[Rfam]
RNA sequence: CUGUCCCCGUGUUAUUUGCGGCACGUUCAUCAAGCGCCGUGAUUGUCAAAGGGGACGCAUAUCAAACUAGCCAAUAACUCGUUAUUGUGCUCCAUUCACGCAUUCCUGCGGGCGCACAUCUCCAUAUAUUGGCCACAUUU
Numbered sequence: 001c002u003g004u005c006c007c008c009g010u011g012u013u014a015u016u017u018g019c020g021g022c023a024c025g026u027u028c029a030u031c032a033a034g035c036g037c038c039g040u041g042a043u044u045g046u047c048a049a050a051g052g053g054g055a056c057g058c059a060u061a062u063c064a065a066a067c068u069a070g071c072c073a074a075u076a077a078c079u080c081g082u083u084a085u086u087g088u089g090c091u092c093c094a095u096u097c098a099c100g101c102a103u104u105c106c107u108g109c110g111g112g113c114g115c116a117c118a119u120c121u122c123c124a125u126a127u128a129u130u131g132g133c134c135a136c137a138u139u140u
Stems, first nucleotide, its partner, number of pairs: 002057006010048002016042007086118003089113004
RNA: Small nucleolar RNA psi18S-1377
Organism: Drosophila navojoa